The record is a 444-nucleotide sequence from Aurantimonas sp. 22II-16-19i, which matches "Bacterial RNase P class A" in Rfam.
Rfam links the family to the GO terms tRNA processing, dimeric ribonuclease P complex and ribonuclease P activity.
Pairs were carried over by alignment from the consensus structure, which is taken from published work.
Lineage of the source: Bacteria > Pseudomonadati > Pseudomonadota > Hyphomicrobiales > Aurantimonas.

RNA sequence: UCAGCCGGCCGGGCGACCGCUCCCGUCAGACGUCGAAAGACGGCGGGGGAGGAAAGUCCGGGCUCCACGGAGAGACGGUGCCGGAUAACGUCCGGCGGGGGCGACCCUAGGGAAAGUGCCACAGAAAGCAGACCGCCCCGCCUACAGUUCGGCUCGUCGUGACGAGGGUCACGAGGCAGCGAGCCGCAGUGUCGGCGGGGUAAGGGUGAAAGGGUGGGGUAAGAGCCCACCGCGGCGCCGGCAACGGCGGCGGCAUGGUAAACCCCACCGGGAGCAAGACCGAAUAGGGACGACGCGGCGUGGGAUUUCGUCCCACCGCCAGCCUCUCUCCGGGCCAGUCGUUCGGGUAGGUUGCUAGAGGCGGUCCGCAAGGGCCGUCCCAGAGGAAUGGUCGCCAGGCGGCUCUGCCGCUUACAGAACCCGGCUUACAGGCCGGCUGACACU
Numbered sequence: 001u002c003a004g005c006c007g008g009c010c011g012g013g014c015g016a017c018c019g020c021u022c023c024c025g026u027c028a029g030a031c032g033u034c035g036a037a038a039g040a041c042g043g044c045g046g047g048g049g050a051g052g053a054a055a056g057u058c059c060g061g062g063c064u065c066c067a068c069g070g071a072g073a074g075a076c077g078g079u080g081c082c083g084g085a086u087a088a089c090g091u092c093c094g095g096c097g098g099g100g101g102c103g104a105c106c107c108u109a110g111g112g113a114a115a116g117u118g119c120c121a122c123a124g125a126a127a128g129c130a131g132a133c134c135g136c137c138c139c140g141c142c143u144a145c146a147g148u149u150c151g152g153c154u155c156g157u158c159g160u161g162a163c164g165a166g167g168g169u170c171a172c173g174a175g176g177c178a179g180c181g182a183g184c185c186g187c188a189g190u191g192u193c194g195g196c197g198g199g200g201u202a203a204g205g206g207u208g209a210a211a212g213g214g215u216g217g218g219g220u221a222a223g224a225g226c227c228c229a230c231c232g233c234g235g236c237g238c239c240g241g242c243a244a245c246g247g248c249g250g251c252g253g254c255a256u257g258g259u260a261a262a263c264c265c266c267a268c269c270g271g272g273a274g275c276a277a278g279a280c281c282g283a284a285u286a287g288g289g290a291c292g293a294c295g296c297g298g299c300g301u302g303g304g305a306u307u308u309c310g311u312c313c314c315a316c317c318g319c320c321a322g323c324c325u326c327u328c329u330c331c332g333g334g335c336c337a338g339u340c341g342u343u344c345g346g347g348u349a350g351g352u353u354g355c356u357a358g359a360g361g362c363g364g365u366c367c368g369c370a371a372g373g374g375c376c377g378u379c380c381c382a383g384a385g386g387a388a389u390g391g392u393c394g395c396c397a398g399g400c401g402g403c404u405c406u407g408c409c410g411c412u413u414a415c416a417g418a419a420c421c422c423g424g425c426u427u428a429c430a431g432g433c434c435g436g437c438u439g440a441c442a443c444u
Stems, first nucleotide, its partner, number of pairs: 001440010011429001012396007020049008054427003058424005063274004072330003076270005081095005096110001097108004111265002116263002118259003133205002135201008213231006232254001233252002236249005278353004288344006322336001324334003360379008